Notes
Shown here is a 67-nucleotide RNA from Pipistrellus kuhlii, a member of the family "mir-9256 microRNA precursor family". Rfam 15.1 lists 31,772 matches to the family in 5 species.

RNA sequence: AAAUACACUGAGUGGCCAGAUUAUUAUGAUUUCUGAACACAUAAUGAUCUGGCCAUUCAGUAUAUAU
Numbered sequence: 001a002a003a004u005a006c007a008c009u010g011a012g013u014g015g016c017c018a019g020a021u022u023a024u025u026a027u028g029a030u031u032u033c034u035g036a037a038c039a040c041a042u043a044a045u046g047a048u049c050u051g052g053c054c055a056u057u058c059a060g061u062a063u064a065u066a067u
Stems, first nucleotide, its partner, number of pairs: 004064002007061011019049010